[Rfam]
RNA: Ribosomal protein L13 leader
RNA sequence: GGUAUUGUUUACCUCACGAUAAGCCCCGGAAACUUAUUGUAAUUAUCUUGGUAAGGAACGACCAAGUCUGUAAACAAGAA
Numbered sequence: 001g002g003u004a005u006u007g008u009u010u011a012c013c014u015c016a017c018g019a020u021a022a023g024c025c026c027c028g029g030a031a032a033c034u035u036a037u038u039g040u041a042a043u044u045a046u047c048u049u050g051g052u053a054a055g056g057a058a059c060g061a062c063c064a065a066g067u068c069u070g071u072a073a074a075c076a077a078g079a080a
Stems, first nucleotide, its partner, number of pairs: 006076007016040008